[Rfam]
RNA sequence: GAUUACACAACGACCUUUCUGUGAUCGCGGCUG
Numbered sequence: 001g002a003u004u005a006c007a008c009a010a011c012g013a014c015c016u017u018u019c020u021g022u023g024a025u026c027g028c029g030g031c032u033g
Base pairs, nucleotide, nucleotide: 001026002025003024004023005022006021007020